[Rfam]
RNA sequence: UCGCGUCCGCCAACCGGUUCAGCCGUGACGCGGAAGGUUUUUCCACCAGCUUGAGCCUCCUUAAGGGGGUGAAAGGUCAGCG
Numbered sequence: 001u002c003g004c005g006u007c008c009g010c011c012a013a014c015c016g017g018u019u020c021a022g023c024c025g026u027g028a029c030g031c032g033g034a035a036g037g038u039u040u041u042u043c044c045a046c047c048a049g050c051u052u053g054a055g056c057c058u059c060c061u062u063a064a065g066g067g068g069g070u071g072a073a074a075g076g077u078c079a080g081c082g
Stems, first nucleotide, its partner, number of pairs: 002082003006034005015025004036047003049077003055070006
RNA: SucA RNA motif
Organism: Ottowia beijingensis